[Rfam]
RNA sequence: CUCACACCCAUGUGUGUAGGAUUUCAAAUGAUUAUCAUUAAAUUUGACACAGAUCUCUAUAAAAGUUAUUACAUGGGUGUCGGACGUGACUUUUCUAGAUAUCUAUGUCAAAUUUAAUGAUGAUCCUUUGAAGUCCUACACACAUGGAUGUGGG
Dot-bracket structure: .(((((.((((((.((((((((((((((.(((.((((((((((((((((.((((.((((.(((((((((.(((....))).)....)))))))).)))).)))).)))))))))))))))).))).)))))))))))))).)))))).))))).
RNA: MIR8565 microRNA precursor family
Organism: Amborella trichopoda